Bacillaceae-1 RNA: a 68-nucleotide RNA from Bacillus sp. J14TS2. The match comes from Rfam's covariance-model search (49 bits).
[Rfam]
RNA sequence: UCCAGCGGGAGGUCGGCUAAUGACGGUCACGUCCUGUGACCAACGCCGACACUAGAACAUCGUGUUCG
Numbered sequence: 001u002c003c004a005g006c007g008g009g010a011g012g013u014c015g016g017c018u019a020a021u022g023a024c025g026g027u028c029a030c031g032u033c034c035u036g037u038g039a040c041c042a043a044c045g046c047c048g049a050c051a052c053u054a055g056a057a058c059a060u061c062g063u064g065u066u067c068g
Stems, first nucleotide, its partner, number of pairs: 012050006026040005055067004